Shown here is a 125-nucleotide sequence from Bucco capensis, a member of the family "Small nucleolar RNA ACA64". A search with the family's covariance model found it, with a score of 43 bits. By type it is an H/ACA-box small nucleolar RNA. Its family is annotated with RNA processing and nucleolus in the Gene Ontology. The source organism's lineage runs through Eukaryota, Vertebrata, Teleostomi, Saurischia and Bucco.

[Rfam]
RNA sequence: ACAGUCUGAAAAUCACUUGGGGUCUUCUGUGGCCCCUGGUGCAAUAACUGUGCAGACAGCAGUGGGAGCAUUUAACGCAUUGCCCACGGUAAAGUGUUGGGAUUGAUAACCAGGUUCCUAUAUUC
Numbered sequence: 001a002c003a004g005u006c007u008g009a010a011a012a013u014c015a016c017u018u019g020g021g022g023u024c025u026u027c028u029g030u031g032g033c034c035c036c037u038g039g040u041g042c043a044a045u046a047a048c049u050g051u052g053c054a055g056a057c058a059g060c061a062g063u064g065g066g067a068g069c070a071u072u073u074a075a076c077g078c079a080u081u082g083c084c085c086a087c088g089g090u091a092a093a094g095u096g097u098u099g100g101g102a103u104u105g106a107u108a109a110c111c112a113g114g115u116u117c118c119u120a121u122a123u124u125c
Stems, first nucleotide, its partner, number of pairs: 006050001008048001010045001014041003021034004065118001067116003071112001078105002081102001085096003
The family's consensus secondary structure was predicted with WAR. Rfam 15.1 lists 9,537 matches to the family in 620 species.